This 87-nucleotide RNA sequence from Biostraticola tofi belongs to the Rfam family "TrxA 5' UTR thermometer". Rfam classes the family as an RNA thermoregulator. A search with the family's covariance model found it, with a score of 61 bits. Rfam links the family to the GO terms response to temperature stimulus and regulation of translation. Lineage of the source: Bacteria > Pseudomonadati > Pseudomonadota > Bruguierivoracaceae > Biostraticola. For this family Rfam cites "Temperature-responsive in vitro RNA structurome of Yersinia pseudotuberculosis" (Righetti et al., Proc Natl Acad Sci U S A, 2016). Rfam's curators write: Involved in protection against oxidative stress.
[Rfam]
RNA sequence: AACCCGUUGCCGGUCAAUGUAUCCGCAGCGUGGUAAUGAUAAUCCUGUGGAGCGAACAUGAGCGAUAAAAUUAUUCACCUGACUGAC
Numbered sequence: 001a002a003c004c005c006g007u008u009g010c011c012g013g014u015c016a017a018u019g020u021a022u023c024c025g026c027a028g029c030g031u032g033g034u035a036a037u038g039a040u041a042a043u044c045c046u047g048u049g050g051a052g053c054g055a056a057c058a059u060g061a062g063c064g065a066u067a068a069a070a071u072u073a074u075u076c077a078c079c080u081g082a083c084u085g086a087c
Base pairs, nucleotide, nucleotide: 008067009066011064012063014061015060016059020054023052026049027048032045033044071086072085073084075082076081